[Rfam]
RNA sequence: AUCGGUCUUCCGAGUUGGGUCACGGCGCUUAGUCCUUCCGACAUAUGGCAAUGACUAGAACCUUGGCUCAGCUCGGGACUCCGAU
Numbered sequence: 001a002u003c004g005g006u007c008u009u010c011c012g013a014g015u016u017g018g019g020u021c022a023c024g025g026c027g028c029u030u031a032g033u034c035c036u037u038c039c040g041a042c043a044u045a046u047g048g049c050a051a052u053g054a055c056u057a058g059a060a061c062c063u064u065g066g067c068u069c070a071g072c073u074c075g076g077g078a079c080u081c082c083g084a085u
Stems, first nucleotide, its partner, number of pairs: 003083003008078015024062002028058001030057005036051002038048002
The family of this 85-nucleotide RNA sequence from Caenorhabditis remanei is "mir-61 microRNA precursor family". The sequence is in the family's curated seed alignment. Pairs were carried over by alignment from the consensus structure, which was predicted with RNAalifold.